Rfam assigns this 75-nucleotide sequence from Streptomyces sp. FR-008 to the family "ASpks TB sRNA". The family's RNA type in Rfam is antisense RNA. The base pairs follow the family's consensus structure, which is taken from published work.
[Rfam]
RNA sequence: CUUGAUGGAGCCGAGCAGCAGCGGCCGGUCCUCGGGCCGGUCCUGCCCGUACGUCGCCAGCAGCGCCUGGGCCUC
Numbered sequence: 001c002u003u004g005a006u007g008g009a010g011c012c013g014a015g016c017a018g019c020a021g022c023g024g025c026c027g028g029u030c031c032u033c034g035g036g037c038c039g040g041u042c043c044u045g046c047c048c049g050u051a052c053g054u055c056g057c058c059a060g061c062a063g064c065g066c067c068u069g070g071g072c073c074u075c
Stems, first nucleotide, its partner, number of pairs: 015025002031071003038065002043060003047056001049054001
The sequence is in the family's curated seed alignment. NCBI's taxonomy places the organism under Bacteria, Bacillati, Actinomycetota, Kitasatosporales, Streptomyces. On this family, see Arnvig and Young, Mol Microbiol 2009: "Identification of small RNAs in Mycobacterium tuberculosis".